[Rfam]
Nucleotides: 073
Base pairs, nucleotide, nucleotide: 010026011025012024013023016064017063018062019061020060021059045054046053047052
Number, partner (000 for none) and nucleotide at each position: 001000u002000a003000g004000u005000u006000u007000u008000a009000a010026g011025g012024g013023a014000a015000u016064g017063a018062g019061g020060u021059u022000c023013u024012c025011c026010c027000g028000u029000g030000g031000a032000u033000g034000a035000u036000u037000c038000c039000a040000a041000a042000a043000g044000u045054g046053c047052g048000u049000g050000u051000a052047u053046g054045c055000u056000g057000a058000u059021g060020a061019c062018u063017u064016c065000u066000g067000u068000g069000u070000a071000a072000a073000a
This 73-nucleotide RNA sequence from Blautia pseudococcoides belongs to the Rfam family "Fluoride riboswitch aptamer (crcB RNA motif)". The organism belongs to Blautia, within Bacteria. The base pairs follow the family's consensus structure, which is taken from published work.